[Rfam]
Nucleotides: 184
Stems, first nucleotide, its partner, number of pairs: 006179006016079009031064002034061003083113003088108007114140002117137007142169010
Number, partner (000 for none) and nucleotide at each position: 001000c002000a003000g004000u005000g006179g007178g008177g009176u010175a011174g012000a013000g014000g015000u016079g017078c018077g019076a020075u021074a022073u023072u024071u025000a026000a027000c028000a029000g030000u031064c032063u033000a034061u035060a036059g037000a038000g039000g040000a041000g042000c043000c044000c045000g046000a047000g048000g049000a050000g051000c052000c053000a054000u055000g056000a057000a058000a059036c060035u061034a062000c063032a064031g065000a066000g067000a068000a069000g070000g071024a072023a073022a074021u075020g076019u077018c078017g079016c080000c081000g082000a083113a084112a085111c086000u087000u088108g089107u090106a091105a092104u093103g094102a095000a096000c097000c098000u099000c100000a101000u102094u103093u104092a105091u106090u107089a108088c109000u110000u111085g112084u113083u114140g115139g116000g117137u118136c119135u120134g121133c122132a123131g124000u125000u126000a127000a128000u129000a130000u131123c132122u133121g134120c135119a136118g137117g138000a139115c140114u141000g142169u143168c144167u145166c146165a147164a148163u149162a150161a151160a152000c153000g154000u155000c156000c157000c158000g159000g160151u161150u162149u163148a164147u165146u166145g167144a168143g169142g170000u171000g172000u173000g174011c175010u176009a177008u178007c179006u180000c181000a182000u183000u184000g

Rfam assigns this 184-nucleotide sequence from Schinkia azotoformans to the family "Lysine riboswitch aptamer".
The match comes from Rfam's covariance-model search (102 bits).
Its family is annotated with lysine biosynthetic process in the Gene Ontology.